Mammalian CPEB3 ribozyme: an 83-nucleotide sequence from Alligator sinensis. Pairs were carried over by alignment from the consensus structure, which is taken from published work. Rfam describes the family as follows. The mammalian CPEB3 ribozyme is a self cleaving RNA located in the second intron of the CPEB3 gene which belongs to a family of genes regulating messenger RNA polyadenylation. Lineage of the source: Eukaryota > Opisthokonta > Teleostomi > Alligatorinae > Alligator.

[Rfam]
RNA sequence: UGUAAGCAGUUGGGGGUCAUAGCAGAAGUGUUCACAUCACAACCCCUGUCAAGUAAUACCUGGUAAUACCUGCAAAUUCUACU
Numbered sequence: 001u002g003u004a005a006g007c008a009g010u011u012g013g014g015g016g017u018c019a020u021a022g023c024a025g026a027a028g029u030g031u032u033c034a035c036a037u038c039a040c041a042a043c044c045c046c047u048g049u050c051a052a053g054u055a056a057u058a059c060c061u062g063g064u065a066a067u068a069c070c071u072g073c074a075a076a077u078u079c080u081a082c083u
Stems, first nucleotide, its partner, number of pairs: 013046005021083002024080004028040003050072002053069003